This 124-nucleotide sequence from Salvia splendens belongs to the Rfam family "Small nucleolar RNA SNORD14".
The literature on the family includes a 1996 paper in Nucleic Acids Res by Samarsky et al., "An essential domain in Saccharomyces cerevisiae U14 snoRNA is absent in vertebrates, but conserved in other yeasts".
Rfam's curators write: U14 small nucleolar RNA (U14 snoRNA) is required for early cleavages of eukaryotic precursor rRNAs.
NCBI's taxonomy places the organism under Eukaryota, Spermatophyta, asterids, Nepetoideae, core Calosphace.
RNA sequence: CUUCUGUGAUGAUAAAUUCUAAGGCUGUUUCUCAAAACAUUCGCAGUAGCCGCCUGAAAGCUUUCGCCUUUCGCCUGGCUUGAGAGCUUCUGAUGCUUAUAUUCUUCCUUGGAUAUCUGAGAUC
Dot-bracket structure: ..((.......................................................((((((................)))))).................................))..
The base pairs follow the family's consensus structure, which was predicted with PFOLD. The family has 18 seed sequences and 4,559 matches in Rfam 15.1.